[Rfam]
Streptomyces sRNA 4677: a 255-nucleotide sequence. The match comes from Rfam's covariance-model search (184 bits).
RNA sequence: CGUUCCGGUGUGACCUGCGCUCCCUAUGCACCACCCACGGGGAGAAAAGGACCCCACCAAGCCCCACCCCUCCCUCCCGCCGGGCAAACUCACCCGCGAGGGUGAAUAUGCCCAACUCGGCUGGAUUCGGGACCGGUUGCCUGCCUUACGCUCAGCGCAGCAAGACCGACAACCCCAGACAUGCGUCGGCCCUCGCCGGGAGUGCAAUCCCAAGGCGAGGGCCUGACCACCAAGGAAGAACGGACCCUCUUCCCG
Dot-bracket structure: ......((((......(.(......................................................).).............((((((....))))))..............(((((...........................)))))...............................(((((.(((.((((......))))...))).)))))....))))..(((((..........)))))..

Rfam's curators write: Located in the intergenic region between anti-sigma factor SCO4677 gene and a putative regulatory protein gene SCO4676. scr4677 expression requires the SCO4677 activity and scr4677 sRNA itself seem to affect the levels of the SCO4676-associated transcripts. It is annotated as a small RNA.